Actinobacteria sRNA Ms_IGR-5: a 226-nucleotide RNA sequence from Thiemannella venezuelensis. Taxonomically the source falls in Thiemannella (Bacteria, Actinomycetota, Actinomycetes, Streptosporangiaceae). The match comes from Rfam's covariance-model search (68 bits).
[Rfam]
RNA sequence: ACGCCGAAAGGAGGUGGUCCGAACAAUGGUUGAUCAUAGUUGGGCUAGCGAGGUGGCUGUCCGCUAGGACGCCGCAGCUCCGGACUCUGUCCGGACGUCCUGCGACGUUCGGCGAAUCCACGACAAUCACCGGAACCCCGGGCUGCCGGAGGGCGGGAAUCCCCCGCCUCUGGUCCAUCCGGCCCUUCCGCUCACGCGGGAGGAACCGGCCCGGGGUUCUUUUCUU
Numbered sequence: 001a002c003g004c005c006g007a008a009a010g011g012a013g014g015u016g017g018u019c020c021g022a023a024c025a026a027u028g029g030u031u032g033a034u035c036a037u038a039g040u041u042g043g044g045c046u047a048g049c050g051a052g053g054u055g056g057c058u059g060u061c062c063g064c065u066a067g068g069a070c071g072c073c074g075c076a077g078c079u080c081c082g083g084a085c086u087c088u089g090u091c092c093g094g095a096c097g098u099c100c101u102g103c104g105a106c107g108u109u110c111g112g113c114g115a116a117u118c119c120a121c122g123a124c125a126a127u128c129a130c131c132g133g134a135a136c137c138c139c140g141g142g143c144u145g146c147c148g149g150a151g152g153g154c155g156g157g158a159a160u161c162c163c164c165c166g167c168c169u170c171u172g173g174u175c176c177a178u179c180c181g182g183c184c185c186u187u188c189c190g191c192u193c194a195c196g197c198g199g200g201a202g203g204a205a206c207c208g209g210c211c212c213g214g215g216g217u218u219c220u221u222u223u224c225u226u
Base pairs, nucleotide, nucleotide: 013061014060015059016058017057018056062114063113064112065111067109068108070107071106073104075102076101077100132220133219134218135217136216137215138214139213140212141211142210143209144208146200147199